[Rfam]
RNA sequence: CUCCCCGAAAUGCGUUUAGGCGCAGCCUCGUAUGAUGUGCACUGGAGGUAGGGCUCUGGUUGGGUCCGGGGGCUUACCGCUUACCAAUCCCAUCCAAACUGCGAAUGCCAGUGCAUGAGAAUACGGGAGUGAGACAGCGGGGGCUAAGCUUCGUUGUCGAAAGGGAAACAGCCCAGACCCUCGGCUAAGGCCCCUAAAUCCAUGCUUAGUGUGAAAGGAAGUCCGGUCGCAAAGACAGCCAGGAUGUUGGCCCAGAAGCAGCCAUCAUUGAAAGAGUGCGUAACAGCUCACUGGUCGAGUGAUCGGGCGCCGACAAUGUAACGGGGCUCAAGCAUGGUGCCGAAGCCAGGGGAUCGUCCUUAGGGGCGGUCGGUAGGGGAGCGUUCCACGCAGCAGUGAAGCCGGCAGGGUGACCUCCGGUGGAGCGUGUGGAAGUGAGAAU
Numbered sequence: 001c002u003c004c005c006c007g008a009a010a011u012g013c014g015u016u017u018a019g020g021c022g023c024a025g026c027c028u029c030g031u032a033u034g035a036u037g038u039g040c041a042c043u044g045g046a047g048g049u050a051g052g053g054c055u056c057u058g059g060u061u062g063g064g065u066c067c068g069g070g071g072g073c074u075u076a077c078c079g080c081u082u083a084c085c086a087a088u089c090c091c092a093u094c095c096a097a098a099c100u101g102c103g104a105a106u107g108c109c110a111g112u113g114c115a116u117g118a119g120a121a122u123a124c125g126g127g128a129g130u131g132a133g134a135c136a137g138c139g140g141g142g143g144c145u146a147a148g149c150u151u152c153g154u155u156g157u158c159g160a161a162a163g164g165g166a167a168a169c170a171g172c173c174c175a176g177a178c179c180c181u182c183g184g185c186u187a188a189g190g191c192c193c194c195u196a197a198a199u200c201c202a203u204g205c206u207u208a209g210u211g212u213g214a215a216a217g218g219a220a221g222u223c224c225g226g227u228c229g230c231a232a233a234g235a236c237a238g239c240c241a242g243g244a245u246g247u248u249g250g251c252c253c254a255g256a257a258g259c260a261g262c263c264a265u266c267a268u269u270g271a272a273a274g275a276g277u278g279c280g281u282a283a284c285a286g287c288u289c290a291c292u293g294g295u296c297g298a299g300u301g302a303u304c305g306g307g308c309g310c311c312g313a314c315a316a317u318g319u320a321a322c323g324g325g326g327c328u329c330a331a332g333c334a335u336g337g338u339g340c341c342g343a344a345g346c347c348a349g350g351g352g353a354u355c356g357u358c359c360u361u362a363g364g365g366g367c368g369g370u371c372g373g374u375a376g377g378g379g380a381g382c383g384u385u386c387c388a389c390g391c392a393g394c395a396g397u398g399a400a401g402c403c404g405g406c407a408g409g410g411u412g413a414c415c416u417c418c419g420g421u422g423g424a425g426c427g428u429g430u431g432g433a434a435g436u437g438a439g440a441a442u
Stems, first nucleotide, its partner, number of pairs: 001381006011024005026129001027127007036120001037116009051102001052100002057096003061092004068085002070082004133158010163174003178351004183347003189341003198338001200337006217311002221308010238295005244268003249263003269273001274289001278287002352371008382437001384434007393426002401421005407416003